RNA sequence: UGCCUUCAGUGUUGCCCAUUCAUCUUGGUUGCUAAUGAAUGUGGUGUCAGAGAGGGCAUAAAACAACUUCCCCACCUUUGUAGCUUUUGUUGCCCAAGUAAUUGUUUGCAAUGGGUUUGCUGCAGUGGGACACCA
Numbered sequence: 001u002g003c004c005u006u007c008a009g010u011g012u013u014g015c016c017c018a019u020u021c022a023u024c025u026u027g028g029u030u031g032c033u034a035a036u037g038a039a040u041g042u043g044g045u046g047u048c049a050g051a052g053a054g055g056g057c058a059u060a061a062a063a064c065a066a067c068u069u070c071c072c073c074a075c076c077u078u079u080g081u082a083g084c085u086u087u088u089g090u091u092g093c094c095c096a097a098g099u100a101a102u103u104g105u106u107u108g109c110a111a112u113g114g115g116u117u118u119g120c121u122g123c124a125g126u127g128g129g130a131c132a133c134c135a
Stems, first nucleotide, its partner, number of pairs: 002057006010049002013046004017041007069130004073122002076119001083116004088111001089109002093104001